Shown here is a 136-nucleotide sequence from Trebonia kvetii, a member of the family "Group II catalytic intron D1-D4-4".

[Rfam]
RNA sequence: UUGCCGGUGUGAGUCCGGUCCGGGUAGCUGCCAGGAGGCCCGGUAGCAGGCUGGCGGCUUGGCCGGGAAACGGGCCGGGUCGGAGCCCAGCGUCAAAAGCCCUCAUGGGGGAGCGACGGUGCGGUCCGUAGCAUUA
Dot-bracket structure: ...................(((((..............)))))......(((((((((((...(.(....).)...))))))....)))))........((.(....)))..(((...........))).......
Notes:
About the family: Group II introns are found in rRNA, tRNA and mRNA of organelles in fungi, plants and protists, and also in mRNA in bacteria. Lineage of the source: Bacteria > Actinomycetes > Streptosporangiales > Treboniaceae > Trebonia.